[Rfam]
Rfam assigns this 57-nucleotide RNA to the family "Glutamine riboswitch aptamer (glnA leader)".
Rfam's curators put it in the seed alignment.
RNA sequence: AUCGUUCAAUCUAAUUUUUAUUAGAUCGGAAGUAAGCAAAAGCUGAAGGAACGCGCA
Number, nucleotide and partner (000 for none) at each position: 001a000002u000003c053004g052005u051006u050007c049008a000009a026010u025011c024012u023013a022014a021015u020016u000017u000018u000019u000020a015021u014022u013023a012024g011025a010026u009027c000028g000029g054030a000031a000032g000033u000034a000035a044036g043037c042038a000039a000040a000041a000042g037043c036044u035045g000046a000047a000048g000049g007050a006051a005052c004053g003054c029055g000056c000057a000